Nucleotides: 132
Stems, first nucleotide, its partner, number of pairs: 002057001004055004015043004022036004070125003074121002083111002088106002091103001
Number, partner (000 for none) and nucleotide at each position: 001000u002057g003000g004055g005054a006053g007052g008000c009000u010000g011000a012000u013000a014000c015043a016042c017041a018040a019000c020000u021000a022036g023035g024034g025033c026000u027000a028000g029000a030000g031000c032000u033025g034024c035023u036022c037000u038000a039000a040018u041017u042016g043015u044000c045000a046000c047000a048000c049000u050000g051000u052007u053006c054005u055004u056000g057002c058000u059000a060000u061000a062000g063000u064000a065000a066000a067000a068000a069000u070125u071124g072123c073000u074121u075120u076000c077000u078000g079000a080000u081000g082000a083111c084110c085000a086000g087000g088106a089105u090000g091103a092000a093000u094000u095000g096000a097000g098000g099000g100000a101000a102000a103091u104000g105089g106088u107000a108000a109000c110084g111083g112000a113000c114000a115000g116000a117000u118000a119000c120075g121074g122000c123072g124071c125070a126000c127000a128000c129000a130000a131000u132000a
This 132-nucleotide RNA from Oenanthe oenanthe belongs to the Rfam family "Small Cajal body specific RNA 8".
The family has 22 seed sequences and 955 matches in Rfam 15.1.
Gene Ontology terms of the family: Cajal body, nucleolus and RNA processing.
It is annotated as a small Cajal body RNA.
It scores 94 bits against the family's covariance model.
Lineage of the source: Eukaryota > Chordata > Sarcopterygii > Aves > Oenanthe.
Rfam's curators write: scaRNAs are a specific class of small nuclear RNAs which localise to the Cajal bodies and guide the modification of RNA polymerase II transcribed spliceosomal RNAs U1, U2, U4, U5 and U12. U92 belong to the H/ACA box class of guide RNAs as it has the predicted hairpin-hinge-hairpin-tail structure, conserved H/ACA-box motifs and is found associated with GAR1.